[Rfam]
Nucleotides: 121
Stems, first nucleotide, its partner, number of pairs: 004118007017029003031101002033091002035049004044089002071087005093104003
Number, partner (000 for none) and nucleotide at each position: 001000g002000u003000u004118c005117a006116u007115c008114u009113u010112c011000g012000g013000g014000g015000c016000a017029g018028g019027g020000u021000g022000c023000a024000a025000u026000u027019c028018c029017c030000g031101a032100c033091c034090g035049g036048u037047g038046g039000u040000u041000a042000a043000a044089g045088u046038c047037c048036a049035c050000g051000a052000u053000c054000u055000g056000c057000u058000u059000u060000u061000a062000g063000c064000a065000g066000u067000u068000g069000a070000c071087u072086c073085u074084g075083g076000u077000g078000u079000a080000a081000u082000u083075c084074c085073a086072g087071g088045a089044c090034c091033g092000a093104c094103a095102g096000u097000a098000u099000a100032g101031u102095c103094u104093g105000g106000a107000u108000g109000g110000g111000a112010g113009a114008a115007g116006a117005u118004g119000u120000u121000g

Record summary: Rfam assigns this 121-nucleotide sequence from Listeria welshimeri to the family "FMN riboswitch aptamer (RFN element)". The base pairs follow the family's consensus structure, which is taken from published work. It is one of the family's seed sequences. The source organism's lineage runs through Bacteria, Bacillota, Caryophanales, Listeriaceae and Listeria welshimeri.